RNA sequence: CCCUCCGGCAAAAGUCGGUAGGGACUGCCACCGGUACCUGACACGGCCGGUGCAG
Number, nucleotide and partner (000 for none) at each position: 001c023002c022003c021004u020005c018006c017007g016008g015009c000010a000011a000012a000013a000014g000015u008016c007017g006018g005019u000020a004021g003022g002023g001024a000025c055026u054027g053028c000029c052030a051031c050032c049033g048034g047035u046036a000037c000038c000039u000040g000041a000042c000043a000044c000045g000046g035047c034048c033049g032050g031051u030052g029053c027054a026055g025